[Rfam]
RNA sequence: AAAAUUCUUCGGGGUCGGGUGAAAGUCCCAACCGGCGGUAUAGUCCGCGACCUGUCGCUUUCGUUGAGCGGCGGCUGAUCUGGUGAGAUUCCAGAACCGACAGUACAGUCUGGAUGAGAGAAGAACUGA
Numbered sequence: 001a002a003a004a005u006u007c008u009u010c011g012g013g014g015u016c017g018g019g020u021g022a023a024a025g026u027c028c029c030a031a032c033c034g035g036c037g038g039u040a041u042a043g044u045c046c047g048c049g050a051c052c053u054g055u056c057g058c059u060u061u062c063g064u065u066g067a068g069c070g071g072c073g074g075c076u077g078a079u080c081u082g083g084u085g086a087g088a089u090u091c092c093a094g095a096a097c098c099g100a101c102a103g104u105a106c107a108g109u110c111u112g113g114a115u116g117a118g119a120g121a122a123g124a125a126c127u128g129a
Stems, first nucleotide, its partner, number of pairs: 003127001005125006017029003031109002033099002035048004043097002052074002079095005101112003
Shown here is a 129-nucleotide sequence from Dorea phocaeensis, a member of the family "FMN riboswitch aptamer (RFN element)". The source organism's lineage runs through Bacteria, Bacillati, Lachnospirales, Lachnospiraceae and Dorea.